[Rfam]
RNA sequence: CCAUAAACUGAGUGGCCAGAUUAUUAUGAUCUCUGAGCACAUAAUAAUCUGGCCACUCAGUUUAUGG
Numbered sequence: 001c002c003a004u005a006a007a008c009u010g011a012g013u014g015g016c017c018a019g020a021u022u023a024u025u026a027u028g029a030u031c032u033c034u035g036a037g038c039a040c041a042u043a044a045u046a047a048u049c050u051g052g053c054c055a056c057u058c059a060g061u062u063u064a065u066g067g
Stems, first nucleotide, its partner, number of pairs: 004064014019049010
RNA: mir-9256 microRNA precursor family